ZMP/ZTP riboswitch aptamer (pfl RNA motif): a 79-nucleotide RNA from Nocardioides marinus. Lineage of the source: Bacteria > Actinomycetota > Actinomycetes > Propionibacteriales > Nocardioides. For this family Rfam cites "Recognition of the bacterial alarmone ZMP through long-distance association of two RNA subdomains" (Jones and Ferre-D'Amare, Nat Struct Mol Biol, 2015). A search with the family's covariance model found it, with a score of 46 bits. The base pairs follow the family's consensus structure, which is taken from published work.
RNA sequence: UGCGGCCCACACGACUGGCGCAGGUGGGUGACCACCGGGGAGUGACCGAGUCGGGGCAUCGUCCGCCUGGGUGCCCCGG
Numbered sequence: 001u002g003c004g005g006c007c008c009a010c011a012c013g014a015c016u017g018g019c020g021c022a023g024g025u026g027g028g029u030g031a032c033c034a035c036c037g038g039g040g041a042g043u044g045a046c047c048g049a050g051u052c053g054g055g056g057c058a059u060c061g062u063c064c065g066c067c068u069g070g071g072u073g074c075c076c077c078g079g
Stems, first nucleotide, its partner, number of pairs: 003048003010044003015039002017067004024035004056074005